The record is a 136-nucleotide RNA from Orthohepacivirus hominis, which matches "Hepatitis C alternative reading frame stem-loop" in Rfam. The base pairs follow the family's consensus structure, which was predicted with RNAfold. NCBI's taxonomy places the organism under Viruses, Riboviria, Amarillovirales, Hepaciviridae, Orthohepacivirus. Rfam classes the family as a cis-regulatory element. The sequence is in the family's curated seed alignment. For this family Rfam cites "The Role of the RNA-RNA Interactome in the Hepatitis C Virus Life Cycle" (Romero-Lopez and Berzal-Herranz, Int J Mol Sci, 2020).
RNA sequence: AUCCGUCGCCCACAGGACGUUAAGUUCCCGGGCGGCGGCCAGAUCGUUGGUGGAGUCUACUUACUGCCGCGCAGGGGCCCAAGAUUGGGUGUGCGCGCAGUUCGUAAAACUUCCGAGCGGUCAGAACCCCGCAACC
Numbered sequence: 001a002u003c004c005g006u007c008g009c010c011c012a013c014a015g016g017a018c019g020u021u022a023a024g025u026u027c028c029c030g031g032g033c034g035g036c037g038g039c040c041a042g043a044u045c046g047u048u049g050g051u052g053g054a055g056u057c058u059a060c061u062u063a064c065u066g067c068c069g070c071g072c073a074g075g076g077g078c079c080c081a082a083g084a085u086u087g088g089g090u091g092u093g094c095g096c097g098c099a100g101u102u103c104g105u106a107a108a109a110c111u112u113c114c115g116a117g118c119g120g121u122c123a124g125a126a127c128c129c130c131g132c133a134a135c136c
Base pairs, nucleotide, nucleotide: 003038004037005036006035007034008033009032010031011030015027016026017025018024042122043121044120045119046118047117048115049114050113052112053111055110056109058107061104063101068097069096070095071094072093073092077090078089079088080087